[Rfam]
Annotation: The family of this 192-nucleotide RNA sequence from Ureibacillus endophyticus is "6S / SsrS RNA".

RNA sequence: UUAAAGCUGCGUUGUUCGUAAAAAUAUUAAGUUUUAACCUUUGAACUGUAAAAGGGAGUUUUAAUCGAAUAAGGAAUGGCGAGCGUCACACUGCGGUGCAUGACGAUAUACAGGAAUUAUUCUGCGAACACCCACUUUGAGGAGUGGUGGUUUAAAACUUUCUAUUAAUAACUACGGCAAGGCGGCUUUGCC
Numbered sequence: 001u002u003a004a005a006g007c008u009g010c011g012u013u014g015u016u017c018g019u020a021a022a023a024a025u026a027u028u029a030a031g032u033u034u035u036a037a038c039c040u041u042u043g044a045a046c047u048g049u050a051a052a053a054g055g056g057a058g059u060u061u062u063a064a065u066c067g068a069a070u071a072a073g074g075a076a077u078g079g080c081g082a083g084c085g086u087c088a089c090a091c092u093g094c095g096g097u098g099c100a101u102g103a104c105g106a107u108a109u110a111c112a113g114g115a116a117u118u119a120u121u122c123u124g125c126g127a128a129c130a131c132c133c134a135c136u137u138u139g140a141g142g143a144g145u146g147g148u149g150g151u152u153u154a155a156a157a158c159u160u161u162c163u164a165u166u167a168a169u170a171a172c173u174a175c176g177g178c179a180a181g182g183c184g185g186c187u188u189u190g191c192c
Stems, first nucleotide, its partner, number of pairs: 002190009012180004017176003030159004035154003038150002054133003058129004067122006078111001084105005